[Rfam]
RNA sequence: CCGACCCAGUUGGGAGAAUCCGGCCGCAAGCCGGUGCCGAAGGAGCAACCGCCCCGGAAACUCUCAGGCCAAAGGACCAGCUGGGGGCA
Numbered sequence: 001c002c003g004a005c006c007c008a009g010u011u012g013g014g015a016g017a018a019u020c021c022g023g024c025c026g027c028a029a030g031c032c033g034g035u036g037c038c039g040a041a042g043g044a045g046c047a048a049c050c051g052c053c054c055c056g057g058a059a060a061c062u063c064u065c066a067g068g069c070c071a072a073a074g075g076a077c078c079a080g081c082u083g084g085g086g087g088c089a
Base pairs, nucleotide, nucleotide: 006084007083008082009081010080011079012078013077020034021033022032023031036069037068038067039065040064043063044062045061049057050056
This 89-nucleotide RNA sequence from Arminella tubonensis belongs to the Rfam family "Glycine riboswitch aptamer". This family represents the bacterial glycine riboswitch. The organism belongs to Arminella, within Bacteria. Pairs were carried over by alignment from the consensus structure. It scores 66 bits against the family's covariance model.